[Rfam]
Rfam assigns this 65-nucleotide RNA sequence from Cricetulus griseus to the family "Small nucleolar RNA SNORD35".
A search with the family's covariance model found it, with a score of 54 bits.
Rfam links the family to the GO terms nucleolus and RNA processing.
The source organism's lineage runs through Eukaryota, Opisthokonta, Craniata, Mammalia and Cricetulus.
U35 is a C/D box snoRNA located in intron 6 of ribosomal protein L13A and intron 3 of ribosomal protein S11 in humans and at homologous positions in mouse and chicken ribosomal protein genes. U35 guides the methylation of 2'-O-ribose sites in 28S rRNA.
Rfam 15.1 lists 1,842 matches to the family in 634 species.
RNA sequence: GGCAGGUGAUGUCCAUUCUCACGAUGGUCUUCAGACAUCCCCAGGGGCAAGGCUGAUGCCAGAAA
Numbered sequence: 001g002g003c004a005g006g007u008g009a010u011g012u013c014c015a016u017u018c019u020c021a022c023g024a025u026g027g028u029c030u031u032c033a034g035a036c037a038u039c040c041c042c043a044g045g046g047g048c049a050a051g052g053c054u055g056a057u058g059c060c061a062g063a064a065a
Stems, first nucleotide, its partner, number of pairs: 001060004
Dot-bracket structure: ((((....................................................)))).....